[Rfam]
RNA sequence: CCUGUUUUUCUAUUUUUGUAUUAAAAACAAAAAAUCUGUUCUUAUCAGUUUAAUAUCUGAUACGUCCCCCAUCGGGGGACCACAUAUUAAACGGAUUUUUGGAACAGGGAGCUGGAUCAGGAGCUUGCUCCGUCCUCUCCACGCAUCGGCCCGGUAUUGCAGCGCCUCCGGGAACGGUGCACUACCU
Numbered sequence: 001c002c003u004g005u006u007u008u009u010c011u012a013u014u015u016u017u018g019u020a021u022u023a024a025a026a027a028c029a030a031a032a033a034a035u036c037u038g039u040u041c042u043u044a045u046c047a048g049u050u051u052a053a054u055a056u057c058u059g060a061u062a063c064g065u066c067c068c069c070c071a072u073c074g075g076g077g078g079a080c081c082a083c084a085u086a087u088u089a090a091a092c093g094g095a096u097u098u099u100u101g102g103a104a105c106a107g108g109g110a111g112c113u114g115g116a117u118c119a120g121g122a123g124c125u126u127g128c129u130c131c132g133u134c135c136u137c138u139c140c141a142c143g144c145a146u147c148g149g150c151c152c153g154g155u156a157u158u159g160c161a162g163c164g165c166c167u168c169c170g171g172g173a174a175c176g177g178u179g180c181a182c183u184a185c186c187u
Base pairs, nucleotide, nucleotide: 007026008025009024012021013020043062044061045060046059047058048057064080065079066078067077068076069075070074108140109139110138111137114134115133120131121130122129123128143180144179145178146177147176148175150172151171152170153169154168

Shown here is a 187-nucleotide RNA from Atractosteus spatula, a member of the family "U2 spliceosomal RNA". Pairs were carried over by alignment from the consensus structure, which is taken from published work. U2 is a small nuclear RNA (snRNA) component of the spliceosome (involved in pre-mRNA splicing). Complementary binding between U2 snRNA (in an area lying towards the 5' end but 3' to hairpin I) and the branchpoint sequence (BPS) of the intron results the bulging out of an unpaired adenosine, on the BPS, which initiates a nucleophilic attack at the intronic 5' splice site, thus starting the first of two transesterification reactions that mediate splicing.